[Rfam]
Record summary:
The record is a 127-nucleotide RNA from Nannospalax galili, which matches "Small nucleolar RNA SNORA3/SNORA45 family" in Rfam. The family has 6 seed sequences and 2,080 matches in Rfam 15.1. It is annotated as an H/ACA-box small nucleolar RNA. The members of this family belong to the H/ACA class of snoRNAs which are thought to guide the sites of modification of uridines to pseudouridines. This family includes mouse snoMBI-28 and human homologues ACA3 (SNORA3) and ACA3-2 (SNORA45).

RNA sequence: ACUGAGGCUAGAGUCAUGCUUGGGUGUCGGCUAUUGCCUUAGUGUGUUAGAGUCCUCAAAUAACUGCUGACCUUAUGCACUGGCUGUGGGCCUUGUGGCACAGUUAGUCACCAGGUUAGUGACAUGC
Number, nucleotide and partner (000 for none) at each position: 001a000002c000003u058004g057005a056006g055007g053008c052009u051010a000011g000012a048013g047014u000015c046016a045017u044018g043019c042020u041021u000022g000023g038024g037025u036026g035027u000028c000029g000030g000031c000032u000033a000034u000035u026036g025037c024038c023039u000040u000041a020042g019043u018044g017045u016046g015047u013048u012049a000050g000051a009052g008053u007054c000055c006056u005057c004058a003059a000060a000061u000062a000063a000064c000065u000066g000067c119068u118069g117070a116071c115072c114073u113074u000075a000076u000077g000078c000079a108080c107081u106082g105083g104084c000085u102086g101087u100088g099089g000090g000091c000092c000093u000094u000095g000096u000097g000098g000099c088100a087101c086102a085103g000104u083105u082106a081107g080108u079109c000110a000111c000112c000113a073114g072115g071116u070117u069118a068119g067120u000121g000122a000123c000124a000125u000126g000127c000

For this family Rfam cites "A novel experimental approach for systematic identification of box H/ACA snoRNAs from eukaryotes" (Gu et al., Nucleic Acids Res, 2005).